[Rfam]
RNA: Small nucleolar RNA snR80
Organism: Hyphodiscus hymeniophilus
RNA sequence: UUGUACUUGCCUACACUCUGGUCCUUACCCCCUCUUCCUUCAAGGAUUUGGUUCAAUCUGUGGUAUCGUCCUAUUUAUGAAGCAAGGAGAUUAAUUCUCGACCGUUUACUCACCGGGGCAUUCUAUCCUUCGGGCGUGGAUGUUUUGGUCCAUAACUUCUGGACGACAU
Numbered sequence: 001u002u003g004u005a006c007u008u009g010c011c012u013a014c015a016c017u018c019u020g021g022u023c024c025u026u027a028c029c030c031c032c033u034c035u036u037c038c039u040u041c042a043a044g045g046a047u048u049u050g051g052u053u054c055a056a057u058c059u060g061u062g063g064u065a066u067c068g069u070c071c072u073a074u075u076u077a078u079g080a081a082g083c084a085a086g087g088a089g090a091u092u093a094a095u096u097c098u099c100g101a102c103c104g105u106u107u108a109c110u111c112a113c114c115g116g117g118g119c120a121u122u123c124u125a126u127c128c129u130u131c132g133g134g135c136g137u138g139g140a141u142g143u144u145u146u147g148g149u150c151c152a153u154a155a156c157u158u159c160u161g162g163a164c165g166a167c168a169u
Stems, first nucleotide, its partner, number of pairs: 007085003020071002023068001026065004031051002100164001102162002113148004118143003122140003